[Rfam]
RNA sequence: UAGCAGCCAUAGCUCCGAGCAUUGUUUGCUAAGUUGCUUUUUGUUCUACGAACAAAACACGAUAGGUGAUCAAUGCCAGUGACGUAGAUUGUCACCAGGGUCGUUUUAGAAAUGAAACGGCCUCCCGUAUUUGGAAAGGUGUCCCGUGGCUAUUCA
Numbered sequence: 001u002a003g004c005a006g007c008c009a010u011a012g013c014u015c016c017g018a019g020c021a022u023u024g025u026u027u028g029c030u031a032a033g034u035u036g037c038u039u040u041u042u043g044u045u046c047u048a049c050g051a052a053c054a055a056a057a058c059a060c061g062a063u064a065g066g067u068g069a070u071c072a073a074u075g076c077c078a079g080u081g082a083c084g085u086a087g088a089u090u091g092u093c094a095c096c097a098g099g100g101u102c103g104u105u106u107u108a109g110a111a112a113u114g115a116a117a118c119g120g121c122c123u124c125c126c127g128u129a130u131u132u133g134g135a136a137a138g139g140u141g142u143c144c145c146g147u148g149g150c151u152a153u154u155c156a
Stems, first nucleotide, its partner, number of pairs: 003151001012142002015139002019076006026069004033063004079095005098123011124134002

A member of the RNA family "Molybdenum/Tungsten riboswitch aptamer (Moco RNA motif)" from Photobacterium jeanii, 156 nucleotides long.
The family has 160 seed sequences and 1,248 matches in Rfam 15.1.
Its family is annotated with regulation of gene expression, molybdenum ion binding and tungstate binding in the Gene Ontology.